Rfam assigns this 128-nucleotide sequence from Carnobacterium iners to the family "Ribosomal protein L10 leader". The family's RNA type in Rfam is cis-regulatory leader. Lineage of the source: Bacteria > Bacillota > Bacilli > Lactobacillales > Carnobacterium.
RNA sequence: CUAAGUUAAGUACUAUUACCGAAGACAGUAGGUGGCCUUGUGCCUUAAAUUCCUGCCGAGGAUGAUAUGUGAAAGCAUACAACACUCCCUCUAUGUCUACGGUGACAUGGAGUUUUUGCGUUGUGCAG
Numbered sequence: 001c002u003a004a005g006u007u008a009a010g011u012a013c014u015a016u017u018a019c020c021g022a023a024g025a026c027a028g029u030a031g032g033u034g035g036c037c038u039u040g041u042g043c044c045u046u047a048a049a050u051u052c053c054u055g056c057c058g059a060g061g062a063u064g065a066u067a068u069g070u071g072a073a074a075g076c077a078u079a080c081a082a083c084a085c086u087c088c089c090u091c092u093a094u095g096u097c098u099a100c101g102g103u104g105a106c107a108u109g110g111a112g113u114u115u116u117u118g119c120g121u122u123g124u125g126c127a128g
Stems, first nucleotide, its partner, number of pairs: 028056005034044003089112009